[Rfam]
RNA sequence: GGUUCGGGAGCCACCCGGUGGGACGGGGGGCAUGAAUGGAACCGGCCCCCUUGAUCGCCACGCGCCGCACUCCGGGCCCCGACGGGAUGCG
Numbered sequence: 001g002g003u004u005c006g007g008g009a010g011c012c013a014c015c016c017g018g019u020g021g022g023a024c025g026g027g028g029g030g031c032a033u034g035a036a037u038g039g040a041a042c043c044g045g046c047c048c049c050c051u052u053g054a055u056c057g058c059c060a061c062g063c064g065c066c067g068c069a070c071u072c073c074g075g076g077c078c079c080c081g082a083c084g085g086g087a088u089g090c091g
Stems, first nucleotide, its partner, number of pairs: 001043005010031003014027004066091003071086004
Description:
This 91-nucleotide sequence from Phaeovulum veldkampii belongs to the Rfam family "Rhodo-rpoB RNA". Taxonomically the source falls in Phaeovulum veldkampii (Bacteria, Pseudomonadati, Alphaproteobacteria, Phaeovulum). The match comes from Rfam's covariance-model search (65 bits). Rfam classes the family as a cis-regulatory element.